[Rfam]
RNA sequence: GCUAGUCGAAGGAUAAGAUUUAGACCUUAAUUCACCAAGC
Numbered sequence: 001g002c003u004a005g006u007c008g009a010a011g012g013a014u015a016a017g018a019u020u021u022a023g024a025c026c027u028u029a030a031u032u033c034a035c036c037a038a039g040c
Stems, first nucleotide, its partner, number of pairs: 001040003005036001006034001008033001009028004
Dot-bracket structure: (((.((.(((((............))))....)).).)))
This 40-nucleotide RNA sequence belongs to the Rfam family "S4-Flavobacteria ribosomal protein leader". The base pairs follow the family's consensus structure, which is taken from published work. A reference for the family is Eckert and Weinberg (2020), "Discovery of 20 novel ribosomal leader candidates in bacteria and archaea", BMC Microbiol. The family is grouped with related families in Rfam's "Ribosomal Protein S4 Leader clan".